[Rfam]
RNA sequence: CGGCUGUAAUGGUCAUAUUGGUUAAGGAGACGCCUGAAAAUCUUCUCCCGACUCCAGUCUCAUAUCCAUGAGAACUUCCCCCGUGGCGCCCAGCGUGAAUCUUGCGGUGGCCACCCACUCGCACGGGUAACCUGCGAUGCUGCGCCGUGGCCCUAAGCAAUGAAGAUGAUACUUGAGGGAGGCUUCACUCUGCAGAGGCAUCUUCACCGUCCGAUGGCAGGCUGGAUCACGAUCGUGGGGGGAAUGUGAGAUGGAGCGGAGAGGUGGGGAUGUCGACUCCGAUUUUUUGCAACUUUUUU
Numbered sequence: 001c002g003g004c005u006g007u008a009a010u011g012g013u014c015a016u017a018u019u020g021g022u023u024a025a026g027g028a029g030a031c032g033c034c035u036g037a038a039a040a041u042c043u044u045c046u047c048c049c050g051a052c053u054c055c056a057g058u059c060u061c062a063u064a065u066c067c068a069u070g071a072g073a074a075c076u077u078c079c080c081c082c083g084u085g086g087c088g089c090c091c092a093g094c095g096u097g098a099a100u101c102u103u104g105c106g107g108u109g110g111c112c113a114c115c116c117a118c119u120c121g122c123a124c125g126g127g128u129a130a131c132c133u134g135c136g137a138u139g140c141u142g143c144g145c146c147g148u149g150g151c152c153c154u155a156a157g158c159a160a161u162g163a164a165g166a167u168g169a170u171a172c173u174u175g176a177g178g179g180a181g182g183c184u185u186c187a188c189u190c191u192g193c194a195g196a197g198g199c200a201u202c203u204u205c206a207c208c209g210u211c212c213g214a215u216g217g218c219a220g221g222c223u224g225g226a227u228c229a230c231g232a233u234c235g236u237g238g239g240g241g242g243a244a245u246g247u248g249a250g251a252u253g254g255a256g257c258g259g260a261g262a263g264g265u266g267g268g269g270a271u272g273u274c275g276a277c278u279c280c281g282a283u284u285u286u287u288u289g290c291a292a293c294u295u296u297u298u299u
Base pairs, nucleotide, nucleotide: 002014003013004012024295025294026293029290036287037286038285039284040283041282042281044264045263046262047261048259049258050257053255054254055253059072060071061070062069063068078241079240080239081238082237083236084235085233087231088230090225091224092223093222094221096219097218099215100214101213104210105209106208107207109152111150112149113148114147115142116139119137120136121135122134123133125132126131153157161206162205163204164203165202166201167200172197173196174195179190180189181188

Fungal signal recognition particle RNA: a 299-nucleotide RNA sequence from Podospora anserina. The base pairs follow the family's consensus structure, which is taken from published work. Rfam 15.1 lists 748 matches to the family in 741 species. The organism belongs to Podospora, within Eukaryota. On this family, see Wild et al., Curr Opin Struct Biol 2002: "Towards the structure of the mammalian signal recognition particle". It scores 141 bits against the family's covariance model. By type it is a non-coding RNA gene.